RNA sequence: AUCGCAUGAUGAAAUAUUACGGAUGUAAAUCACAGACCUGUUCCGAAGCGCAAUACGAUGUGGAUAUUUUCCGUUGCCUUCCUUCUGACCUAACGU
Numbered sequence: 001a002u003c004g005c006a007u008g009a010u011g012a013a014a015u016a017u018u019a020c021g022g023a024u025g026u027a028a029a030u031c032a033c034a035g036a037c038c039u040g041u042u043c044c045g046a047a048g049c050g051c052a053a054u055a056c057g058a059u060g061u062g063g064a065u066a067u068u069u070u071c072c073g074u075u076g077c078c079u080u081c082c083u084u085c086u087g088a089c090c091u092a093a094c095g096u
Base pairs, nucleotide, nucleotide: 003095004094020073021072022071023070
Dot-bracket structure: ..((...............((((..............................................))))....................)).
About this RNA: A member of the RNA family "Small nucleolar RNA Z13/snr52" from Coccidioides immitis, 96 nucleotides long. The base pairs follow the family's consensus structure, which was predicted with PFOLD. Rfam links the family to the GO terms RNA processing and nucleolus. The source organism's lineage runs through Eukaryota, Dikarya, saccharomyceta, leotiomyceta and Coccidioides immitis. It is one of the family's seed sequences.